RNA sequence: AUACCUUAAACUUAUGAGUAAGGAAAAUAAUGAUUCAGGGUGACACCCAAAUCCUCACUGCUAAUGUGAGACGGAUUUUUGAACAGUUAAAAGUUGCUCCUAAGAUGGCUCGCCUACUUUGCGGGAUACCUGGGAGUCGUGACCUACCUG
Numbered sequence: 001a002u003a004c005c006u007u008a009a010a011c012u013u014a015u016g017a018g019u020a021a022g023g024a025a026a027a028u029a030a031u032g033a034u035u036c037a038g039g040g041u042g043a044c045a046c047c048c049a050a051a052u053c054c055u056c057a058c059u060g061c062u063a064a065u066g067u068g069a070g071a072c073g074g075a076u077u078u079u080u081g082a083a084c085a086g087u088u089a090a091a092a093g094u095u096g097c098u099c100c101u102a103a104g105a106u107g108g109c110u111c112g113c114c115u116a117c118u119u120u121g122c123g124g125g126a127u128a129c130c131u132g133g134g135a136g137u138c139g140u141g142a143c144c145u146a147c148c149u150g
Base pairs, nucleotide, nucleotide: 004023005022006021007020008019032053033052034051035050038047039046054070055069056068057067058066084150085149086148088146091145093143094142095141096140097139100134101133103131104130106128107127109125110124111123112122113121
Dot-bracket structure: ...(((((..........)))))........((((..((......))..))))(((((.......))))).............(((.(..(.(((((..((.((.((.(((((.......))))).)).)).))....))))).)).)))